[Rfam]
RNA sequence: AGUAAAUUACAAUCGAAUGUUCGUAUAAUGCCGGAAAUAUGGUCCGGGAGUCUCUACCAAAUCACCAUAAAUGAUUUGACUACGAUAUGGAUUUAAUAUUUA
Numbered sequence: 001a002g003u004a005a006a007u008u009a010c011a012a013u014c015g016a017a018u019g020u021u022c023g024u025a026u027a028a029u030g031c032c033g034g035a036a037a038u039a040u041g042g043u044c045c046g047g048g049a050g051u052c053u054c055u056a057c058c059a060a061a062u063c064a065c066c067a068u069a070a071a072u073g074a075u076u077u078g079a080c081u082a083c084g085a086u087a088u089g090g091a092u093u094u095a096a097u098a099u100u101u102a
Stems, first nucleotide, its partner, number of pairs: 021085005029049001031047005058078007
RNA: Purine riboswitch aptamer